The family of this 143-nucleotide RNA sequence from Mus spicilegus is "Small nucleolar RNA SNORA48".
Taxonomically the source falls in Mus (Eukaryota, Metazoa, Vertebrata, Theria).
By type it is an H/ACA-box small nucleolar RNA.
The snoRNA ACA 48 has been identified to guide pseudouridylation of the residue U3797 in the 28S rRNA subunit.
Gene Ontology terms of the family: nucleolus and RNA processing.
[Rfam]
RNA sequence: CGCCCUGCCAAUGGGCAAAGAGACACCAUGUCGGUGGUGGUGUUCUUAUACCAGUCGGGGGCACAGCAGAUGGCAGCCCUUUGUUCAUCCUAGCCUGAUGCCUGGCUUGGUGGCCAAAGCUGUCUUAUGCCUAAGACUCAGAA
Numbered sequence: 001c002g003c004c005c006u007g008c009c010a011a012u013g014g015g016c017a018a019a020g021a022g023a024c025a026c027c028a029u030g031u032c033g034g035u036g037g038u039g040g041u042g043u044u045c046u047u048a049u050a051c052c053a054g055u056c057g058g059g060g061g062c063a064c065a066g067c068a069g070a071u072g073g074c075a076g077c078c079c080u081u082u083g084u085u086c087a088u089c090c091u092a093g094c095c096u097g098a099u100g101c102c103u104g105g106c107u108u109g110g111u112g113g114c115c116a117a118a119g120c121u122g123u124c125u126u127a128u129g130c131c132u133a134a135g136a137c138u139c140a141g142a143a
Stems, first nucleotide, its partner, number of pairs: 002062003005058003012053003018047003022041001024039004083137003097131001099129001103127003108122002111119001